[Rfam]
The record is a 78-nucleotide RNA from Methylocystis parvus, which matches "chrB-a RNA" in Rfam. Rfam classes the family as a cis-regulatory element. The match comes from Rfam's covariance-model search (54 bits). Rfam 15.1 lists 347 matches to the family in 339 species.
RNA sequence: CCUAUGGAGAAGCGAUCUCCCCACGAGGCGACAUGCCCGAGAAACGCGUCCGGUUUUCCAGCAAGGGCGCGCCCAAAG
Number, nucleotide and partner (000 for none) at each position: 001c000002c000003u000004a000005u023006g022007g021008a000009g019010a018011a000012g000013c000014g000015a000016u000017c000018u010019c009020c000021c007022c006023a005024c000025g000026a000027g000028g000029c000030g000031a000032c000033a000034u000035g000036c000037c000038c000039g000040a000041g000042a000043a000044a000045c000046g070047c069048g068049u067050c066051c065052g000053g000054u000055u000056u000057u000058c000059c000060a000061g000062c000063a000064a000065g051066g050067g049068c048069g047070c046071g000072c000073c000074c000075a000076a000077a000078g000